[Rfam]
RNA sequence: GGGUCUGCAGAUCACCCAGGCGUCACCGCCCCGAAAGGGGAGCUAAACCUGCAA
Number, nucleotide and partner (000 for none) at each position: 001g017002g016003g015004u014005c000006u000007g000008c000009a000010g000011a000012u000013c000014a004015c003016c002017c001018a000019g000020g000021c000022g000023u000024c000025a000026c000027c000028g000029c040030c039031c038032c037033g000034a000035a000036a000037g032038g031039g030040g029041a000042g000043c000044u000045a000046a000047a000048c000049c000050u000051g000052c000053a000054a000
RNA: COG3860 RNA
Organism: Methylorubrum extorquens